The record is a 103-nucleotide RNA from Papaver nudicaule, which matches "MIR2275 microRNA precursor family" in Rfam. Rfam links the family to the GO terms miRNA-mediated post-transcriptional gene silencing and RISC complex.

RNA sequence: GGUAUGAAGAUGAGAAUUGGAUGAAACCAAACCUCUCUUGAGGGCAUUUCUGUUGGGUUUGAACUCCAAGGUUUGGUUUCCUCCAAUAUCUCACCUUCAAUAU
Numbered sequence: 001g002g003u004a005u006g007a008a009g010a011u012g013a014g015a016a017u018u019g020g021a022u023g024a025a026a027c028c029a030a031a032c033c034u035c036u037c038u039u040g041a042g043g044g045c046a047u048u049u050c051u052g053u054u055g056g057g058u059u060u061g062a063a064c065u066c067c068a069a070g071g072u073u074u075g076g077u078u079u080c081c082u083c084c085a086a087u088a089u090c091u092c093a094c095c096u097u098c099a100a101u102a103u
Base pairs, nucleotide, nucleotide: 005099006098007097008096011093012092013091014090016087017086018085019084020083021082023080024079025078026077027076028075029074030073032071033070